[Rfam]
RNA sequence: GGAGCGGGAACCCGGCACGGCCACGGCCGGUCAGACCGGGAGCGCCGACCCGCAAGGGACGGCAGCG
Dot-bracket structure: ..........(((((..((((....))))......)))))...((((.(((....))).))))....
Numbered sequence: 001g002g003a004g005c006g007g008g009a010a011c012c013c014g015g016c017a018c019g020g021c022c023a024c025g026g027c028c029g030g031u032c033a034g035a036c037c038g039g040g041a042g043c044g045c046c047g048a049c050c051c052g053c054a055a056g057g058g059a060c061g062g063c064a065g066c067g
Stems, first nucleotide, its partner, number of pairs: 011040005018029004044063004049058003
This 67-nucleotide RNA from Frankia alni belongs to the Rfam family "Transposase-2 RNA". The source organism's lineage runs through Bacteria, Actinomycetota, Frankiales, Frankia and Frankia alni. By type it is a small RNA.